[Rfam]
RNA sequence: GUAAAGCGAAACUAGGGUUCCGGCCUGCUCAUCAGCAGAGGAGGCGUCUGGUCCGAGAGUUUCCGGCUUCGUCGUGACGAGGCUCCACGGAGGGAUAAAAGCCCGGGAGAU
Number, nucleotide and partner (000 for none) at each position: 001g000002u000003a000004a000005a000006g000007c000008g063009a062010a061011a060012c059013u000014a000015g054016g053017g000018u000019u000020c051021c050022g048023g045024c044025c043026u042027g000028c040029u039030c038031a000032u000033c000034a000035g000036c000037a000038g030039a029040g028041g000042a026043g025044g024045c023046g000047u000048c022049u000050g021051g020052u000053c016054c015055g000056a000057g000058a000059g012060u011061u010062u009063c008064c000065g084066g083067c082068u081069u080070c079071g078072u077073c000074g000075u000076g000077a072078c071079g070080a069081g068082g067083c066084u065085c000086c106087a000088c109089g000090g000091a000092g104093g103094g102095a000096u000097a000098a000099a000100a000101g000102c094103c093104c092105g000106g086107g000108a000109g088110a000111u000

The family of this 111-nucleotide RNA sequence from Nitrosospira sp. Nsp14 is "Guanidine-I riboswitch aptamer". Lineage of the source: Bacteria > Pseudomonadota > Betaproteobacteria > Nitrosomonadales > Nitrosospira. For this family Rfam cites "New RNA motifs suggest an expanded scope for riboswitches in bacterial genetic control" (Barrick et al., Proc Natl Acad Sci U S A, 2004). This family represents a conserved RNA structure found upstream of the ykkC and yxkD genes in Bacillus subtilis and related genes in other bacteria.